[Rfam]
Vault RNA: a 100-nucleotide RNA sequence from Cavia porcellus. About the family: This family of RNAs are found as part of the enigmatic vault ribonucleoprotein complex. The family has 73 seed sequences and 2,873 matches in Rfam 15.1.
RNA sequence: GGGCCGGCUUUAGCCCAGCGGUUCCUUUAAGUCUGGCUUCCCAACCACCCGGCCGAUUGGUCCGGUGGUUGGAGACCCGCGGGCGCUCUCCAGUCUUUCA
Dot-bracket structure: .(((.((.....((((.((((....(((.(.......................................).)))..)))))))).....)).))).....